[Rfam]
RNA sequence: UAGUAUUACAACUCCUUUAGAUUUUGUUUAGAAGCUUUUCUGAUCUCUACCAGAAAGCCUCC
Numbered sequence: 001u002a003g004u005a006u007u008a009c010a011a012c013u014c015c016u017u018u019a020g021a022u023u024u025u026g027u028u029u030a031g032a033a034g035c036u037u038u039u040c041u042g043a044u045c046u047c048u049a050c051c052a053g054a055a056a057g058c059c060u061c062c
Stems, first nucleotide, its partner, number of pairs: 034059001036057007044049001
RNA: U7 small nuclear RNA